[Rfam]
Rfam assigns this 85-nucleotide RNA from Metapseudomonas resinovorans to the family "gyrA RNA".
The base pairs follow the family's consensus structure, which is taken from published work.
RNA sequence: UCGUGAGUCGCUGCAGCAUCUGGCCGCAGUGACGAGCUUCGCAGCGCUCAGGAUGAGCGGGGCGGAGUUUCAUCAGAAAAAGGAA
Numbered sequence: 001u002c003g004u005g006a007g008u009c010g011c012u013g014c015a016g017c018a019u020c021u022g023g024c025c026g027c028a029g030u031g032a033c034g035a036g037c038u039u040c041g042c043a044g045c046g047c048u049c050a051g052g053a054u055g056a057g058c059g060g061g062g063c064g065g066a067g068u069u070u071c072a073u074c075a076g077a078a079a080a081a082g083g084a085a
Base pairs, nucleotide, nucleotide: 007033008032009031010030011029012028013027014026016024017023034070035069036068037067038066039065040064041063042062045059046058047057048056049055
The organism belongs to Metapseudomonas resinovorans, within Bacteria. A search with the family's covariance model found it, with a score of 70 bits.